A member of the RNA family "Archaeal small subunit ribosomal RNA" from Halonotius pteroides, 359 nucleotides of a longer RNA. The literature on the family includes a 2001 paper in Science by Yusupov et al., "Crystal structure of the ribosome at 5.5 A resolution". NCBI's taxonomy places the organism under Archaea, Methanobacteriati, Halobacteria, Haloferacaceae, Halonotius.
RNA sequence: GGCCUAAAGCGUCCGUAGCUGGCCGACCAAGUCUAUCGGGAAAUCCACCUGCCCAACAGGUGGGCGUCCGGUAGAAACUGGCCGGCUUGGAACCGGAAGGCUCAGAGAGUACGUCCGGGGUAGGAGUGAAAUCCCGUAAUCCCGGACGGACUACCGAUGGCGAAAGCACUCUGAGAAGACGGCUUCGACAGUGAGGGACGAAAGCUCGGGUCUCAAACCGGAUUAGAUACCCGGGUAGUCCGAGCCGUAAACAAUGCUCGUUAGGUGUGGCACCCACUACGAGUGGGUGCUGUGCCGCAGGGAAGCCGCUAAACGAGCCGCCUGGGAAGUACGUCCGCAAGGAUGAAACUUAAAGGAAU
Dot-bracket structure: (((.....(.((((.(.(((.((((.((.(((((((((((....(((((((.....)))))))...)))))))))..)))).))))...((((((.....(((((((((..((((((((...(((......)))......))))))))..)).......((....)).)))))))....))).)))...))))..))))....((((((....(...((((.........))))...).))))))..........((((((..((((((((((((((.....))))))))))))))...((....)).....)))))))))).(((......((((....))))....)))........